The family of this 122-nucleotide RNA sequence from Massilia sp. Root351 is "Burkholderia RNA 11". By type it is a small RNA. Gene Ontology term of the family: protein binding.
[Rfam]
RNA sequence: GCAACCUCAGUUUCUCCAGGCAGAACCGCACCGUGUUCCUGUCCAUGCUGGGCAACUCGUGGUUCUGGUUCUACGGCGCGCUGAUCCUGGCGCAGUUCCCGGUGUACGCCAAGGAAUACCUG
Numbered sequence: 001g002c003a004a005c006c007u008c009a010g011u012u013u014c015u016c017c018a019g020g021c022a023g024a025a026c027c028g029c030a031c032c033g034u035g036u037u038c039c040u041g042u043c044c045a046u047g048c049u050g051g052g053c054a055a056c057u058c059g060u061g062g063u064u065c066u067g068g069u070u071c072u073a074c075g076g077c078g079c080g081c082u083g084a085u086c087c088u089g090g091c092g093c094a095g096u097u098c099c100c101g102g103u104g105u106a107c108g109c110c111a112a113g114g115a116a117u118a119c120c121u122g
Stems, first nucleotide, its partner, number of pairs: 009049003013045001017041002020038001022037002025034002051121002055117001057115002060112001062110001064104001067099002071095002074092002077089002080087001
It scores 49 bits against the family's covariance model.
Rfam's curators write: Co-purified with Hfq, expression confirmed by Northern blot.